RNA sequence: UGAAAAGUUUUCUAGGGUUCCGCCGGGCGAUAAAAGUACGGGGCUGGUCCGAGAGAAAACGCACAGAUGUAUAUGAAUCUGUGUACACGGAAGGAUAAAAGCCUGGGAGGA
Numbered sequence: 001u002g003a004a005a006a007g008u009u010u011u012c013u014a015g016g017g018u019u020c021c022g023c024c025g026g027g028c029g030a031u032a033a034a035a036g037u038a039c040g041g042g043g044c045u046g047g048u049c050c051g052a053g054a055g056a057a058a059a060c061g062c063a064c065a066g067a068u069g070u071a072u073a074u075g076a077a078u079c080u081g082u083g084u085a086c087a088c089g090g091a092a093g094g095a096u097a098a099a100a101g102c103c104u105g106g107g108a109g110g111a
Stems, first nucleotide, its partner, number of pairs: 007060006015050002020047002022044001023041003027037002061084008086106001088109001092104003
Dot-bracket structure: ......((((((..((...((((((.((.......)).)))..).)).))....))))))((((((((........)))))))).(.[...(((.......))).)..]..